[Rfam]
RNA sequence: GCAUGGGUUUGGAUUUAUGGCAGGCCCGUCCCCCUGGGCCUCUCAUAGUGUCCCAUGCCACAGCGAAGGUGGCCCCGAACCAUGGCCUGGCCUCCGCACCGUAGGUGGCAGGCACUGAAGUGGGUCGCACACUG
Numbered sequence: 001g002c003a004u005g006g007g008u009u010u011g012g013a014u015u016u017a018u019g020g021c022a023g024g025c026c027c028g029u030c031c032c033c034c035u036g037g038g039c040c041u042c043u044c045a046u047a048g049u050g051u052c053c054c055a056u057g058c059c060a061c062a063g064c065g066a067a068g069g070u071g072g073c074c075c076c077g078a079a080c081c082a083u084g085g086c087c088u089g090g091c092c093u094c095c096g097c098a099c100c101g102u103a104g105g106u107g108g109c110a111g112g113c114a115c116u117g118a119a120g121u122g123g124g125u126c127g128c129a130c131a132c133u134g
Base pairs, nucleotide, nucleotide: 001058002057003056004055005053006052007051008050015048016047017046018045019044020043022041023040024039025037026036070127071126072125073124074123075122081117082116086112087111088108090106091105092104093103
Rfam assigns this 134-nucleotide RNA from Suricata suricatta to the family "Small nucleolar RNA SNORA42/SNORA80 family". Lineage of the source: Eukaryota > Opisthokonta > Eumetazoa > Carnivora > Suricata. For this family Rfam cites "A computational screen for mammalian pseudouridylation guide H/ACA RNAs" (Schattner et al., RNA, 2006). Its family is annotated with RNA processing and nucleolus in the Gene Ontology. From the family's description: The members of this family belong to the H/ACA class of snoRNAs that guide the sites of modification of uridines to pseudouridines. Human ACA42 (SNORA42) was cloned from HeLa cells by immunoprecipitation with anti-GAR1 antibody. Its is predicted to guide the pseudouridylation of residues U109 and U572 of 18S rRNA. ACA42 shares the same host gene with ACA26, ACA46, ACA50. This family also includes mammalian snoRNA ACA67 (SNORA80) which was identified by computational screening and its expression in mouse experimentally verified by Northern blot and primer extension analysis. ACA67 is proposed to guide the pseudouridylation of the same 18S rRNA residues as ACA42. The family's consensus secondary structure was predicted with RNAalifold. It is annotated as an H/ACA-box small nucleolar RNA.